Annotation:
The record is a 69-nucleotide RNA sequence from Tetracentron sinense, which matches "Plastid-clpP 5UTR RNA" in Rfam. About the family: Plastid clpP is a non-coding RNA (ncRNA) recognised in plastids. It was found in the prime untranslated region (5UTR) of a protease complex subunit (clpP) in plastids, suggesting a posible cis-regulatory function. Pairs were carried over by alignment from the consensus structure, which was predicted with LocARNA.
[Rfam]
RNA sequence: AAUUUAGUUCAUAUGAUCACAGAGAAGCAGAUCUAUUCUAUACCCGAUAAGUACCACUACGUAGUGGGG
Numbered sequence: 001a002a003u004u005u006a007g008u009u010c011a012u013a014u015g016a017u018c019a020c021a022g023a024g025a026a027g028c029a030g031a032u033c034u035a036u037u038c039u040a041u042a043c044c045c046g047a048u049a050a051g052u053a054c055c056a057c058u059a060c061g062u063a064g065u066g067g068g069g
Stems, first nucleotide, its partner, number of pairs: 003022002007018001009016002043068003051060003